[Rfam]
RNA sequence: GUGAGCCAGGAAAAGGAAGAAAUGUUUCUAAGAGCACUAGGGAUAGGAACAUGAAGGAAAGCAUUAUUGUAUAUGGAGAUUUGGUUUAAUGUUUUCCUGAUGCCUCCUAUUCCUAAGGCUCUUAGGUUCUCCUUCCCUUUCCUUAUGGCU
Numbered sequence: 001g002u003g004a005g006c007c008a009g010g011a012a013a014a015g016g017a018a019g020a021a022a023u024g025u026u027u028c029u030a031a032g033a034g035c036a037c038u039a040g041g042g043a044u045a046g047g048a049a050c051a052u053g054a055a056g057g058a059a060a061g062c063a064u065u066a067u068u069g070u071a072u073a074u075g076g077a078g079a080u081u082u083g084g085u086u087u088a089a090u091g092u093u094u095u096c097c098u099g100a101u102g103c104c105u106c107c108u109a110u111u112c113c114u115a116a117g118g119c120u121c122u123u124a125g126g127u128u129c130u131c132c133u134u135c136c137c138u139u140u141c142c143u144u145a146u147g148g149c150u
Stems, first nucleotide, its partner, number of pairs: 009141004015135003022130001024129001027126009038115011050102003054098001056097007

This 150-nucleotide RNA sequence from Sorghum bicolor belongs to the Rfam family "MIR2118 microRNA precursor family". Taxonomically the source falls in Sorghum (Eukaryota, Streptophytina, Embryophyta, Tracheophyta). Pairs were carried over by alignment from the consensus structure, which was predicted with RNAalifold. For this family Rfam cites "Characterization and expression profiles of miRNAs in rice seeds" (Xue et al., Nucleic Acids Res, 2009).